[Rfam]
RNA sequence: GAAAACUCACCGCAACGAAACAAAUCGUUCAGAAACACUUGACCACGAGGGGUCCUCUAUAGUACCGUCAGGUUGCGGCAGCCCCCGUGCGAUAGGCUAACUGUGGUGUUCCCCGCACUCCGUCGAGCGGUUAAUACGACGCUUAUUAAGAC
Numbered sequence: 001g002a003a004a005a006c007u008c009a010c011c012g013c014a015a016c017g018a019a020a021c022a023a024a025u026c027g028u029u030c031a032g033a034a035a036c037a038c039u040u041g042a043c044c045a046c047g048a049g050g051g052g053u054c055c056u057c058u059a060u061a062g063u064a065c066c067g068u069c070a071g072g073u074u075g076c077g078g079c080a081g082c083c084c085c086c087g088u089g090c091g092a093u094a095g096g097c098u099a100a101c102u103g104u105g106g107u108g109u110u111c112c113c114c115g116c117a118c119u120c121c122g123u124c125g126a127g128c129g130g131u132u133a134a135u136a137c138g139a140c141g142c143u144u145a146u147u148a149a150g151a152c
Stems, first nucleotide, its partner, number of pairs: 009131005015123003019029003030103003038095002044089004049085005056078002064073003105119005